[Rfam]
RNA sequence: UAUGCCUUUAAAACAGUCCUGUGAGGCUGAGAAGGAACGGAUAAAUUAGCUGGAAUACCUAUGUCCAGACUAAUAAACUCAUGUACCUCUCACCUCAAGGUGAGAGGUCUUUUUUUA
Numbered sequence: 001u002a003u004g005c006c007u008u009u010a011a012a013a014c015a016g017u018c019c020u021g022u023g024a025g026g027c028u029g030a031g032a033a034g035g036a037a038c039g040g041a042u043a044a045a046u047u048a049g050c051u052g053g054a055a056u057a058c059c060u061a062u063g064u065c066c067a068g069a070c071u072a073a074u075a076a077a078c079u080c081a082u083g084u085a086c087c088u089c090u091c092a093c094c095u096c097a098a099g100g101u102g103a104g105a106g107g108u109c110u111u112u113u114u115u116u117a
Base pairs, nucleotide, nucleotide: 003037005035006034007033008032009031014029015028016027017026018025045074046073047072048071049070051068053066055064056063057062081112083110085108086107087106088105089104090103091102092101093100094099
Overview:
The family of this 117-nucleotide RNA sequence from Bacillus sp. OK048 is "PyrR binding site". The organism belongs to Bacillus, within Bacteria. The base pairs follow the family's consensus structure, which is taken from published work.